[Rfam]
RNA sequence: AUCUUAUCAAGAGAGACGGAGGGAUAUGGCCCUGUGAAGUCUCAGCAACCCCCACAUGCGAUUGGGACGGUGCUAAAUCCAUUAGGUGAAUCACCUAGAAGAUAAGAG
Dot-bracket structure: .(((((((....(((((...(((..[[[[)))......)))))((((.((((((........))))..))))))...(]]]]((((((...))))))..)))))))).
Numbered sequence: 001a002u003c004u005u006a007u008c009a010a011g012a013g014a015g016a017c018g019g020a021g022g023g024a025u026a027u028g029g030c031c032c033u034g035u036g037a038a039g040u041c042u043c044a045g046c047a048a049c050c051c052c053c054a055c056a057u058g059c060g061a062u063u064g065g066g067a068c069g070g071u072g073c074u075a076a077a078u079c080c081a082u083u084a085g086g087u088g089a090a091u092c093a094c095c096u097a098g099a100a101g102a103u104a105a106g107a108g
Stems, first nucleotide, its partner, number of pairs: 002107007013043005021032003026082004044074004049070002051066004078100001083097006
Shown here is a 108-nucleotide sequence from Streptohalobacillus salinus, a member of the family "SAM riboswitch aptamer (S box leader)". The match comes from Rfam's covariance-model search (94 bits). A reference for the family is Winkler et al. (2003), "An mRNA structure that controls gene expression by binding S-adenosylmethionine", Nat Struct Biol.